Shown here is an 83-nucleotide sequence from Comamonas sp. BIGb0124, a member of the family "SucA RNA motif". The base pairs follow the family's consensus structure, which is taken from published work. The match comes from Rfam's covariance-model search (89 bits). The literature on the family includes a 2007 paper in Nucleic Acids Res by Weinberg et al., "Identification of 22 candidate structured RNAs in bacteria using the CMfinder comparative genomics pipeline". Taxonomically the source falls in Comamonas (Bacteria, Pseudomonadati, Betaproteobacteria, Comamonadaceae). Gene Ontology term of the family: regulation of translation.
[Rfam]
RNA sequence: UCGCAAUCCGCUAACCGGUGAAGCCGUGUCGCGGAAGGUUUACUAACCAGCUACAGCUUCCCACAGGGAAGUGAAAGUCAGCG
Numbered sequence: 001u002c003g004c005a006a007u008c009c010g011c012u013a014a015c016c017g018g019u020g021a022a023g024c025c026g027u028g029u030c031g032c033g034g035a036a037g038g039u040u041u042a043c044u045a046a047c048c049a050g051c052u053a054c055a056g057c058u059u060c061c062c063a064c065a066g067g068g069a070a071g072u073g074a075a076a077g078u079c080a081g082c083g
Stems, first nucleotide, its partner, number of pairs: 002083003007035005016026004037048004050078003056072007